[Rfam]
RNA sequence: GCGAUGAGCUGAAUUGUGUAAGUCGAGGGACGAGCUUUCUAAGCAACGUGCGAUGUGGCGCGCGGUCUCUCGCCUCAAUACGCAGGCGCCUGUUUUCGAACAGGCGC
Numbered sequence: 001g002c003g004a005u006g007a008g009c010u011g012a013a014u015u016g017u018g019u020a021a022g023u024c025g026a027g028g029g030a031c032g033a034g035c036u037u038u039c040u041a042a043g044c045a046a047c048g049u050g051c052g053a054u055g056u057g058g059c060g061c062g063c064g065g066u067c068u069c070u071c072g073c074c075u076c077a078a079u080a081c082g083c084a085g086g087c088g089c090c091u092g093u094u095u096u097c098g099a100a101c102a103g104g105c106g107c
Base pairs, nucleotide, nucleotide: 014078015077016076018074024072025071026070027069028068029067030066031065034044035043047064048063050061051060052059085107087106088105089104090103091102092101093100